[Rfam]
RNA sequence: GACCUACCCCGUAGCUAUGUGUUACGGCAAGGUCGAAAAUCGUUAGGUACAGAGAACCCGUCAUUCAGGGCGUACCUAACGUUAUAGGGGGAAACUCCUAUAAGGCCGCAAGGCCU
Numbered sequence: 001g002a003c004c005u006a007c008c009c010c011g012u013a014g015c016u017a018u019g020u021g022u023u024a025c026g027g028c029a030a031g032g033u034c035g036a037a038a039a040u041c042g043u044u045a046g047g048u049a050c051a052g053a054g055a056a057c058c059c060g061u062c063a064u065u066c067a068g069g070g071c072g073u074a075c076c077u078a079a080c081g082u083u084a085u086a087g088g089g090g091g092a093a094a095c096u097c098c099u100a101u102a103a104g105g106c107c108g109c110a111a112g113g114c115c116u
Stems, first nucleotide, its partner, number of pairs: 001034004009027007041081010057070003083102008103116005

The family of this 116-nucleotide RNA sequence is "LOOT RNA". The sequence is in the family's curated seed alignment. The family's consensus secondary structure is taken from published work.